The family of this 136-nucleotide RNA from Ceuthmochares aereus is "Small nucleolar RNA SNORA15".
About the family: ACA15 is a member of the H/ACA class of snoRNA that guide the sites of modification of uridines to pseudouridines.
The family's RNA type in Rfam is H/ACA-box small nucleolar RNA.
A reference for the family is Huttenhofer et al. (2001), "RNomics: an experimental approach that identifies 201 candidates for novel, small, non-messenger RNAs in mouse", EMBO J.
The source organism's lineage runs through Eukaryota, Opisthokonta, Gnathostomata, Sarcopterygii and Ceuthmochares.
A search with the family's covariance model found it, with a score of 68 bits.
[Rfam]
RNA sequence: GCAUGGACGAAUUCUGCACUAGCUUUCCUCAGUAGCUAAUGCAGUCAGACACUAUGCCAGAGUAAAUUCCCUUUUCGCACUGUGAUGGGUAUGCUUUUUGUAUGAGAACUGGUGUGCCCCUGGAAGUGGGAUACAU
Numbered sequence: 001g002c003a004u005g006g007a008c009g010a011a012u013u014c015u016g017c018a019c020u021a022g023c024u025u026u027c028c029u030c031a032g033u034a035g036c037u038a039a040u041g042c043a044g045u046c047a048g049a050c051a052c053u054a055u056g057c058c059a060g061a062g063u064a065a066a067u068u069c070c071c072u073u074u075u076c077g078c079a080c081u082g083u084g085a086u087g088g089g090u091a092u093g094c095u096u097u098u099u100g101u102a103u104g105a106g107a108a109c110u111g112g113u114g115u116g117c118c119c120c121u122g123g124a125a126g127u128g129g130g131a132u133a134c135a136u
Stems, first nucleotide, its partner, number of pairs: 001057006014044005070129002072126006087119009